[Rfam]
RNA sequence: UCUUCCGUGAGGGAGAAUCUGAAGGAAGUCGGACGCAAACACUUGCACUGACGAACAGAAACUUCAUACUAAGGCUCGGUGAAAUGGAUAAGUCUACAACACAAGAUGAAGUCCAAUACUGCCCGAAAUUUCAUUGAGUAAAUGAAGCAGUGACAUGAGUGGAAAGUGACUACU
Numbered sequence: 001u002c003u004u005c006c007g008u009g010a011g012g013g014a015g016a017a018u019c020u021g022a023a024g025g026a027a028g029u030c031g032g033a034c035g036c037a038a039a040c041a042c043u044u045g046c047a048c049u050g051a052c053g054a055a056c057a058g059a060a061a062c063u064u065c066a067u068a069c070u071a072a073g074g075c076u077c078g079g080u081g082a083a084a085u086g087g088a089u090a091a092g093u094c095u096a097c098a099a100c101a102c103a104a105g106a107u108g109a110a111g112u113c114c115a116a117u118a119c120u121g122c123c124c125g126a127a128a129u130u131u132c133a134u135u136g137a138g139u140a141a142a143u144g145a146a147g148c149a150g151u152g153a154c155a156u157g158a159g160u161g162g163a164a165a166g167u168g169a170c171u172a173c174u
Stems, first nucleotide, its partner, number of pairs: 001016006028174001031171002035167002040161006046152005062147006074139003078135007086114004092107004
RNA: Group II catalytic intron D1-D4-3